[Rfam]
Nucleotides: 110
Base pairs, nucleotide, nucleotide: 001075003073004072011033012032013031014030016028017026018025035062036061037060040058041057042056044053045052078099079098080097081096082095083094084093085092
Number, partner (000 for none) and nucleotide at each position: 001075g002000c003073u004072c005000a006000g007000g008000u009000g010000g011033g012032u013031c014030a015000u016028c017026g018025g019000c020000c021000c022000c023000g024000g025018c026017c027000c028016g029000c030014u031013g032012g033011c034000a035062g036061g037060c038000a039000a040058c041057c042056c043000u044053u045052c046000c047000a048000c049000u050000g051000c052045g053044a054000c055000g056042g057041g058040g059000u060037g061036c062035c063000c064000c065000g066000g067000g068000u069000g070000a071000c072004g073003a074000c075001c076000a077000g078099g079098u080097c081096c082095c083094g084093c085092c086000c087000c088000g089000g090000g091000c092085g093084g094083u095082g096081g097080g098079g099078c100000a101000a102000g103000u104000g105000c106000g107000g108000u109000c110000u